RNA sequence: CGGGUAGACGAAUUGGCCCCGAUUUAAGUCCAGUUCUAAAGUAAAUAAGGAAUUAAAAUG
Numbered sequence: 001c002g003g004g005u006a007g008a009c010g011a012a013u014u015g016g017c018c019c020c021g022a023u024u025u026a027a028g029u030c031c032a033g034u035u036c037u038a039a040a041g042u043a044a045a046u047a048a049g050g051a052a053u054u055a056a057a058a059u060g
Stems, first nucleotide, its partner, number of pairs: 001021004010036007